[Rfam]
RNA sequence: CCGCAUCGCCCUCCUUGGGCGUUUCCUCCCUAGACUCGGGCCGCCUCAUUUGAGUGCGGCCUCUUUUUUUUGGAGA
Numbered sequence: 001c002c003g004c005a006u007c008g009c010c011c012u013c014c015u016u017g018g019g020c021g022u023u024u025c026c027u028c029c030c031u032a033g034a035c036u037c038g039g040g041c042c043g044c045c046u047c048a049u050u051u052g053a054g055u056g057c058g059g060c061c062u063c064u065u066u067u068u069u070u071u072g073g074a075g076a
Stems, first nucleotide, its partner, number of pairs: 008020004039061006045054003

About this RNA:
The record is a 76-nucleotide sequence from Roseibium album, which matches "Makes More Granules Regulator RNA (mmgR)" in Rfam. Clan: suhB sRNA clan. It scores 62 bits against the family's covariance model.